[Rfam]
RNA sequence: CUUCAGCGAACCCAGCCACAGCGGACGCUGCGGCGAGUGGUCCUGCCCGUAGGUGGCGAGCAGCGCCCCCGCCUC
Numbered sequence: 001c002u003u004c005a006g007c008g009a010a011c012c013c014a015g016c017c018a019c020a021g022c023g024g025a026c027g028c029u030g031c032g033g034c035g036a037g038u039g040g041u042c043c044u045g046c047c048c049g050u051a052g053g054u055g056g057c058g059a060g061c062a063g064c065g066c067c068c069c070c071g072c073c074u075c
Base pairs, nucleotide, nucleotide: 016024017023031071032070033069038065039064043060044059047056048055049054